[Rfam]
Rfam assigns this 93-nucleotide RNA from Erysiphe neolycopersici to the family "Small nucleolar RNA Z13/snr52".
Gene Ontology terms of the family: nucleolus and RNA processing.
Taxonomically the source falls in Erysiphe (Eukaryota, Dikarya, Pezizomycotina, sordariomyceta).
RNA sequence: UCUCAUUUUAUGAUGAAAAAAUCGGAUGUUUUACACAGUCCAAGAGCGCAAAACCAUGUGGAGAUUACCGUUGCCUUCCUUCUGAAAAAUUAA
Numbered sequence: 001u002c003u004c005a006u007u008u009u010a011u012g013a014u015g016a017a018a019a020a021a022u023c024g025g026a027u028g029u030u031u032u033a034c035a036c037a038g039u040c041c042a043a044g045a046g047c048g049c050a051a052a053a054c055c056a057u058g059u060g061g062a063g064a065u066u067a068c069c070g071u072u073g074c075c076u077u078c079c080u081u082c083u084g085a086a087a088a089a090u091u092a093a
Base pairs, nucleotide, nucleotide: 003092005090023070024069025068
It scores 71 bits against the family's covariance model. It is annotated as a C/D-box small nucleolar RNA.